[Rfam]
RNA sequence: UGACCCUUCUAAGCCGAGGGUCACCUAGCCAACUGACGUUGUUAGUGAACACCAUUGUUCACACUUAUAGACGGCCAAUCACACUUCUUGUGGUUGGCCUUUUUUUU
Numbered sequence: 001u002g003a004c005c006c007u008u009c010u011a012a013g014c015c016g017a018g019g020g021u022c023a024c025c026u027a028g029c030c031a032a033c034u035g036a037c038g039u040u041g042u043u044a045g046u047g048a049a050c051a052c053c054a055u056u057g058u059u060c061a062c063a064c065u066u067a068u069a070g071a072c073g074g075c076c077a078a079u080c081a082c083a084c085u086u087c088u089u090g091u092g093g094u095u096g097g098c099c100u101u102u103u104u105u106u107u
Stems, first nucleotide, its partner, number of pairs: 001023006040071001042070001045062007075097008
The family of this 107-nucleotide RNA sequence from Vibrio cholerae is "Qrr RNA". Its family is annotated with quorum sensing in the Gene Ontology. The family's consensus secondary structure is taken from published work. By type it is a small RNA. Rfam's curators put it in the seed alignment. Rfam describes the family as follows. This family represents a set of small RNAs (the Qrr RNAs) that are thought to be involved in the regulation of quorum sensing in Vibrio species. It is believed that these RNAs, guided by a protein, Hfq, can mediate the destabilisation of the quorum-sensing master regulators LuxR/HapR mRNAs. Lineage of the source: Bacteria > Pseudomonadati > Gammaproteobacteria > Vibrio > Vibrio cholerae.